[Rfam]
RNA sequence: CUCCUUAGCAGAGGGGAGUAGCUGCUCCGGACAACGUCAACAUACUGGCAAAAGCCUGGCGUUGUCGGCAAGAUCAUGCUCAGCGAGACUUUUGCACCGAUGGUGCAAAGGUCUUUUUUUUUCCCAGGAGUCUAUCGUGGAGGGUUUUUGGUUAUCACUCGGUUUGAUU
Dot-bracket structure: .............................((((((((((.......(((....)))))))))))))(.((((..........................................................................................)))).).
The family of this 169-nucleotide RNA sequence from Desulfobacca acetoxidans is "Manganese Mn2+ riboswitch aptamer (yybP-ykoY)". Taxonomically the source falls in Desulfobacca acetoxidans (Bacteria, Pseudomonadati, Desulfobaccia, Desulfobacca). The base pairs follow the family's consensus structure.